A member of the RNA family "Selenocysteine insertion sequence 1" from Stegodyphus mimosarum, 62 nucleotides long. The family's RNA type in Rfam is cis-regulatory element. The source organism's lineage runs through Eukaryota, Panarthropoda, Arachnida, Araneae and Stegodyphus.
[Rfam]
RNA sequence: UUGAGAUAAAUGAUGCUGUGUUCUAAAACUUUAAAAGUGGAACAUGGCUGAUGCUUUCUCAA
Numbered sequence: 001u002u003g004a005g006a007u008a009a010a011u012g013a014u015g016c017u018g019u020g021u022u023c024u025a026a027a028a029c030u031u032u033a034a035a036a037g038u039g040g041a042a043c044a045u046g047g048c049u050g051a052u053g054c055u056u057u058c059u060c061a062a
Base pairs, nucleotide, nucleotide: 001062002061003060004059005058015048016047017046018045019044020043021042022041023040024039029037030036031035